The record is a 115-nucleotide sequence from Coregonus sp. 'balchen', which matches "Small nucleolar RNA SNORD60" in Rfam. Rfam links the family to the GO terms RNA processing and nucleolus. By type it is a C/D-box small nucleolar RNA. Pairs were carried over by alignment from the consensus structure, which was predicted with PFOLD.
RNA sequence: AGCCAUUGAUACAAAACUAAAACUUUUCUGACACCUCGUAUGAAGGCUGGUAACAGCCCCUGACACCUCGUAUGAAGGCUGGUAACAGCCCCUGAUUUGAACUGUGCUGAGGCUC
Numbered sequence: 001a002g003c004c005a006u007u008g009a010u011a012c013a014a015a016a017c018u019a020a021a022a023c024u025u026u027u028c029u030g031a032c033a034c035c036u037c038g039u040a041u042g043a044a045g046g047c048u049g050g051u052a053a054c055a056g057c058c059c060c061u062g063a064c065a066c067c068u069c070g071u072a073u074g075a076a077g078g079c080u081g082g083u084a085a086c087a088g089c090c091c092c093u094g095a096u097u098u099g100a101a102c103u104g105u106g107c108u109g110a111g112g113c114u115c
Base pairs, nucleotide, nucleotide: 001114002113003112004111046089047088048087049086